[Rfam]
RNA sequence: AGUCAUAUGCUUGUCUCAAAGAUUAAGCCAUGCAUGUCUAAGUAUAAGCCAAAUUAUACAGCGAAACUGCGAAUGGCUCAUUAAAUCAGUUAUGAUCUACAUGACAAAAUCAAUUACUACUUGGAUAACCGUGGUAAUUCUAGAGCUAAUACAUGCGCAAAAAGCCCUGACUUCGGAAGGGGUGCACUUAUUAGAUAAAAGCCAACCCAGUGUAAAAGCUGGUUUCUGGUGACUCAUAAUAAUUUAGCUGAUCGCAUUGGCUUUACGCCGGCGACGGUUCAUUCGAUUUUCUGCCCUAUCAGGUUUUGAUUGUAAGGUAGUGGCUUACAAUGCCUGCAACGGGUAACGGGGAAUUAGGGUUCGAUUCCGGAGAGGGAGCCUGAGAAACGGCUACCACAUCCAAGGAAGGCAGCAGGCGCGCAAAUUACCCAAUGCCAAUUCGGCGAGGUAGUGACAAUAAAUAACAAUGCAGGGCCUUUACGGUCUUGCAAUUGGAAUGAGUACAAUUUAAAUCCCUUAACGAGGAUCAAUUGGAGGGCAAGUCUGGUGCCAGCAGCCGCGGUAAUUCCAGCUCCAAUAGCGUAUAUUAAAGUUGCUG
Numbered sequence: 001a002g003u004c005a006u007a008u009g010c011u012u013g014u015c016u017c018a019a020a021g022a023u024u025a026a027g028c029c030a031u032g033c034a035u036g037u038c039u040a041a042g043u044a045u046a047a048g049c050c051a052a053a054u055u056a057u058a059c060a061g062c063g064a065a066a067c068u069g070c071g072a073a074u075g076g077c078u079c080a081u082u083a084a085a086u087c088a089g090u091u092a093u094g095a096u097c098u099a100c101a102u103g104a105c106a107a108a109a110u111c112a113a114u115u116a117c118u119a120c121u122u123g124g125a126u127a128a129c130c131g132u133g134g135u136a137a138u139u140c141u142a143g144a145g146c147u148a149a150u151a152c153a154u155g156c157g158c159a160a161a162a163a164g165c166c167c168u169g170a171c172u173u174c175g176g177a178a179g180g181g182g183u184g185c186a187c188u189u190a191u192u193a194g195a196u197a198a199a200a201g202c203c204a205a206c207c208c209a210g211u212g213u214a215a216a217a218g219c220u221g222g223u224u225u226c227u228g229g230u231g232a233c234u235c236a237u238a239a240u241a242a243u244u245u246a247g248c249u250g251a252u253c254g255c256a257u258u259g260g261c262u263u264u265a266c267g268c269c270g271g272c273g274a275c276g277g278u279u280c281a282u283u284c285g286a287u288u289u290u291c292u293g294c295c296c297u298a299u300c301a302g303g304u305u306u307u308g309a310u311u312g313u314a315a316g317g318u319a320g321u322g323g324c325u326u327a328c329a330a331u332g333c334c335u336g337c338a339a340c341g342g343g344u345a346a347c348g349g350g351g352a353a354u355u356a357g358g359g360u361u362c363g364a365u366u367c368c369g370g371a372g373a374g375g376g377a378g379c380c381u382g383a384g385a386a387a388c389g390g391c392u393a394c395c396a397c398a399u400c401c402a403a404g405g406a407a408g409g410c411a412g413c414a415g416g417c418g419c420g421c422a423a424a425u426u427a428c429c430c431a432a433u434g435c436c437a438a439u440u441c442g443g444c445g446a447g448g449u450a451g452u453g454a455c456a457a458u459a460a461a462u463a464a465c466a467a468u469g470c471a472g473g474g475c476c477u478u479u480a481c482g483g484u485c486u487u488g489c490a491a492u493u494g495g496a497a498u499g500a501g502u503a504c505a506a507u508u509u510a511a512a513u514c515c516c517u518u519a520a521c522g523a524g525g526a527u528c529a530a531u532u533g534g535a536g537g538g539c540a541a542g543u544c545u546g547g548u549g550c551c552a553g554c555a556g557c558c559g560c561g562g563u564a565a566u567u568c569c570a571g572c573u574c575c576a577a578u579a580g581c582g583u584a585u586a587u588u589a590a591a592g593u594u595g596c597u598g
Base pairs, nucleotide, nucleotide: 001588002587003586005585006584007583008582009581010580011579014459016457020452021419027417028416029415031414032413033412036070037069041068042067043066048062049061077372078371079370087293088292089291092288096286097285102281103280104279120155122153123152129145132142133141134140164183165182166181167180168179171176188242189241190240191239192238193237201230202229203228204227211217252274253273254272255271258270259269260268261267295343296342297341302334303333304332309331310330311329312328313327314326315325316324347369348368349367350366351362352361353360354359374395375394377392378391379390397408399406400405425450427449428448429447433445434444435443436442465494466493467492468490469489470488471487472486473485474484475483476482501521502520503518505517531577532576533575534574535573536572544571545570546569547568553560554559

Eukaryotic small subunit ribosomal RNA: a 598-nucleotide part of an RNA from Apophysomyces sp. BC1034. The family's consensus secondary structure is taken from published work. The organism belongs to Apophysomyces, within Eukaryota.